[Rfam]
RNA sequence: UUCUUAUCAAGAGAGGUGGAGGGACUGGCCCUACGAAACCUCAGCAACCAGUCGUCGUGGACACGGUGCUAAAUCCAGCUAAGCAAGUAUUGCUUGGAAGAUGAGAA
Number, nucleotide and partner (000 for none) at each position: 001u107002u106003c105004u104005u103006a102007u101008c100009a000010a000011g000012a000013g042014a041015g040016g039017u038018g000019g000020a000021g031022g030023g029024a000025c078026u077027g076028g075029c023030c022031c021032u000033a000034c000035g000036a000037a000038a017039c016040c015041u014042c013043a070044g069045c068046a067047a000048c066049c065050a000051g000052u060053c059054g000055u000056c000057g000058u000059g053060g052061a000062c000063a000064c000065g049066g048067u046068g045069c044070u043071a000072a000073a000074u099075c028076c027077a026078g025079c096080u000081a095082a094083g093084c092085a091086a000087g000088u000089a000090u000091u085092g084093c083094u082095u081096g079097g000098a000099a074100g008101a007102u006103g005104a004105g003106a002107a001
SAM riboswitch aptamer (S box leader): a 107-nucleotide RNA from Priestia koreensis.
The base pairs follow the family's consensus structure, which is taken from published work.